[Rfam]
RNA sequence: GCUGUGUCUAGGGGCGCUCCCGAAAAUCCGUACAUCUCGACGGACUGGUACAGCCACUACAGUAGAGG
Numbered sequence: 001g002c003u004g005u006g007u008c009u010a011g012g013g014g015c016g017c018u019c020c021c022g023a024a025a026a027u028c029c030g031u032a033c034a035u036c037u038c039g040a041c042g043g044a045c046u047g048g049u050a051c052a053g054c055c056a057c058u059a060c061a062g063u064a065g066a067g068g
Base pairs, nucleotide, nucleotide: 001054002053003052004051005050006049007048008047011021012020013019027044028043029042030041031040035068036067037066038065
Rfam assigns this 68-nucleotide RNA sequence from Escherichia coli to the family "int-alpA RNA". Pairs were carried over by alignment from the consensus structure, which is taken from published work. About the family: Acidobacteria (1 example), Planctomycetes (1 example), Proteobacteria. The family has 167 seed sequences and 577 matches in Rfam 15.1. Rfam classes the family as a small RNA.